[Rfam]
Rfam assigns this 227-nucleotide RNA sequence from Halothece sp. PCC 7418 to the family "HNH endonuclease-associated RNA and ORF (HEARO) RNA". A search with the family's covariance model found it, with a score of 105 bits. By type it is a non-coding RNA gene. The literature on the family includes a 2009 paper in Nature by Weinberg et al., "Exceptional structured noncoding RNAs revealed by bacterial metagenome analysis". The family has 139 seed sequences and 952 matches in Rfam 15.1.
RNA sequence: GUCAGCACGUCUUUCUAGAAGGAACCCACUUCGGGCUUCUCCCUUCUAGCUAGCUGACCCGCCUAAGUCCUGCGAGGACUACGUUUAGGGGAAGCGUUAAAGUUCCUACCUUGUGGGGGCGUAGCCACCCGCAAGCUCUAGAACCAAACAGUUAAACAGUCCUAGAAAUAGAUAAGACAGUGCUGCUUGGAAACACCGCCCUUAAACCUUGGCUAGGCUAACUUUAC
Numbered sequence: 001g002u003c004a005g006c007a008c009g010u011c012u013u014u015c016u017a018g019a020a021g022g023a024a025c026c027c028a029c030u031u032c033g034g035g036c037u038u039c040u041c042c043c044u045u046c047u048a049g050c051u052a053g054c055u056g057a058c059c060c061g062c063c064u065a066a067g068u069c070c071u072g073c074g075a076g077g078a079c080u081a082c083g084u085u086u087a088g089g090g091g092a093a094g095c096g097u098u099a100a101a102g103u104u105c106c107u108a109c110c111u112u113g114u115g116g117g118g119g120c121g122u123a124g125c126c127a128c129c130c131g132c133a134a135g136c137u138c139u140a141g142a143a144c145c146a147a148a149c150a151g152u153u154a155a156a157c158a159g160u161c162c163u164a165g166a167a168a169u170a171g172a173u174a175a176g177a178c179a180g181u182g183c184u185g186c187u188u189g190g191a192a193a194c195a196c197c198g199c200c201c202u203u204a205a206a207c208c209u210u211g212g213c214u215a216g217g218c219u220a221a222c223u224u225u226a227c
Stems, first nucleotide, its partner, number of pairs: 001058006007051001010023001011021001025035003061213003065209001066080005083207009104142002110135008118223001122220005144190004149185004156181002159178003163174002